[Rfam]
RNA sequence: CAUCAAAAAAGUCAAAAGGUCAUGUUGUUCAUGCUUGCAUGAAAAAACAUGACUUUGGGACCCGCAAAAACAUGAGAAAGUAGCCCGAACAGGGCGGAUUUCGAAUGUUUUUAGGAUUGUGGGAGCACAUCGUGCGGAACAAUCCGUGGGUA
Numbered sequence: 001c002a003u004c005a006a007a008a009a010a011g012u013c014a015a016a017a018g019g020u021c022a023u024g025u026u027g028u029u030c031a032u033g034c035u036u037g038c039a040u041g042a043a044a045a046a047a048c049a050u051g052a053c054u055u056u057g058g059g060a061c062c063c064g065c066a067a068a069a070a071c072a073u074g075a076g077a078a079a080g081u082a083g084c085c086c087g088a089a090c091a092g093g094g095c096g097g098a099u100u101u102c103g104a105a106u107g108u109u110u111u112u113a114g115g116a117u118u119g120u121g122g123g124a125g126c127a128c129a130u131c132g133u134g135c136g137g138a139a140c141a142a143u144c145c146g147u148g149g150g151u152a
Stems, first nucleotide, its partner, number of pairs: 002151003011061003016056011028044001029042005066112008076102004083095004114145007125135004
This 152-nucleotide RNA sequence from Anaerobium acetethylicum belongs to the Rfam family "Clostridiales-1 RNA".
It scores 109 bits against the family's covariance model.
Taxonomically the source falls in Anaerobium (Bacteria, Bacillati, Lachnospirales, Lachnospiraceae).
By type it is a small RNA.